[Rfam]
About this RNA: A member of the RNA family "F6 TB sRNA" from Rhodococcus xishaensis, 56 nucleotides long. The base pairs follow the family's consensus structure, which is taken from published work. Taxonomically the source falls in Rhodococcus (Bacteria, Bacillati, Actinomycetota, Actinomycetes). The literature on the family includes a 2009 paper in Mol Microbiol by Arnvig and Young, "Identification of small RNAs in Mycobacterium tuberculosis".

RNA sequence: CAGUUGGCACCGUGUCGUUACCGGACCCCCGACCUGGCAACGACACGGUGCCGCUG
Numbered sequence: 001c002a003g004u005u006g007g008c009a010c011c012g013u014g015u016c017g018u019u020a021c022c023g024g025a026c027c028c029c030c031g032a033c034c035u036g037g038c039a040a041c042g043a044c045a046c047g048g049u050g051c052c053g054c055u056g
Base pairs, nucleotide, nucleotide: 002055003054004053007051008050009049010048011047012046013045014044015043016042017041018040019039021037022036